[Rfam]
RNA sequence: GGGGCUGUAGCUCAGCUGGAUAGAGCGAGCGCCUCCUAAGCGCUAGGUCGCCGGUUCAAAUCUGGCCAGUCCCG
Numbered sequence: 001g002g003g004g005c006u007g008u009a010g011c012u013c014a015g016c017u018g019g020a021u022a023g024a025g026c027g028a029g030c031g032c033c034u035c036c037u038a039a040g041c042g043c044u045a046g047g048u049c050g051c052c053g054g055u056u057c058a059a060a061u062c063u064g065g066c067c068a069g070u071c072c073c074g
Stems, first nucleotide, its partner, number of pairs: 001073007010026004028044005050066005
Shown here is a 74-nucleotide RNA from Calothrix sp. NIES-3974, a member of the family "tRNA". Transfer RNA (tRNA) molecules are approximately 80 nucleotides in length. Their secondary structure includes four short double-helical elements and three loops (D, anti-codon, and T loops). Further hydrogen bonds mediate the characteristic L-shaped molecular structure. tRNAs have two regions of fundamental functional importance: the anti-codon, which is responsible for specific mRNA codon recognition, and the 3' end, to which the tRNAs corresponding amino acid is attached (by aminoacyl-tRNA synthetases). tRNAs cope with the degeneracy of the genetic code in two manners: having more than one tRNA (with a specific anti-codon) for a particular amino acid; and 'wobble' base-pairing, i.e. permitting non-standard base-pairing at the 3rd anti-codon position. The organism belongs to Calothrix, within Bacteria. Rfam classes the family as a transfer RNA.